[Rfam]
Rfam assigns this 70-nucleotide sequence from Brugia malayi to the family "mir-239 microRNA precursor family". Gene Ontology terms of the family: miRNA-mediated post-transcriptional gene silencing and RISC complex. The literature on the family includes a 2006 paper in Cell by Ruby et al., "Large-scale sequencing reveals 21U-RNAs and additional microRNAs and endogenous siRNAs in C. elegans". NCBI's taxonomy places the organism under Eukaryota, Bilateria, Rhabditida, Onchocercidae, Brugia.
RNA sequence: GAAGCUUUGUACUUCGGCUAAGGUGCUGCUACGGUUACGGGACAACACCUUGGCUAGGUACAAUGCUCAA
Numbered sequence: 001g002a003a004g005c006u007u008u009g010u011a012c013u014u015c016g017g018c019u020a021a022g023g024u025g026c027u028g029c030u031a032c033g034g035u036u037a038c039g040g041g042a043c044a045a046c047a048c049c050u051u052g053g054c055u056a057g058g059u060a061c062a063a064u065g066c067u068c069a070a
Stems, first nucleotide, its partner, number of pairs: 003067003007063006016054001018053007027044002029041002